[Rfam]
RNA: Small nucleolar RNA SNORD115
RNA sequence: GGGUCAAUGAUGAGAAUUCAUAUUGUCUCAAAGAGAGAUGAUGACAUAAAAAUCAUGCUCAAUAGUAUUAUGCUGAGGUCC
Numbered sequence: 001g002g003g004u005c006a007a008u009g010a011u012g013a014g015a016a017u018u019c020a021u022a023u024u025g026u027c028u029c030a031a032a033g034a035g036a037g038a039u040g041a042u043g044a045c046a047u048a049a050a051a052a053u054c055a056u057g058c059u060c061a062a063u064a065g066u067a068u069u070a071u072g073c074u075g076a077g078g079u080c081c
Base pairs, nucleotide, nucleotide: 001081002080003079004078005075006074008072009071